Rfam assigns this 136-nucleotide RNA from Paenibacillus peoriae to the family "EGFOA RNA". The organism belongs to Paenibacillus peoriae, within Bacteria. The sequence is in the family's curated seed alignment.
[Rfam]
RNA sequence: CACCCUCCAGAUUGGCGUUGUGACUCCAACGACCAAUGUCCCGUCCGUGUGACCGUGUAAAAGCGGUCAGGCUGCCAGGGGGAGUUAGUACGACUAUGCGCGAUAAAGCACGACCUGGACGCGCUCCACUCCCUGA
Number, nucleotide and partner (000 for none) at each position: 001c000002a000003c000004c000005c000006u119007c118008c117009a116010g115011a000012u000013u000014g000015g000016c000017g000018u000019u000020g000021u000022g000023a000024c000025u000026c000027c000028a000029a000030c000031g000032a000033c000034c000035a000036a000037u000038g000039u000040c000041c000042c000043g114044u113045c000046c112047g111048u110049g109050u069051g068052a067053c066054c065055g064056u063057g000058u000059a000060a000061a000062a000063g056064c055065g054066g053067u052068c051069a050070g000071g000072c000073u000074g000075c000076c135077a134078g133079g132080g131081g130082g129083a000084g000085u000086u096087a095088g094089u000090a000091c000092g000093a000094c088095u087096a086097u000098g124099c123100g122101c121102g120103a000104u000105a000106a000107a000108g000109c049110a048111c047112g046113a044114c043115c010116u009117g008118g007119a006120c102121g101122c100123g099124c098125u000126c000127c000128a000129c082130u081131c080132c079133c078134u077135g076136a000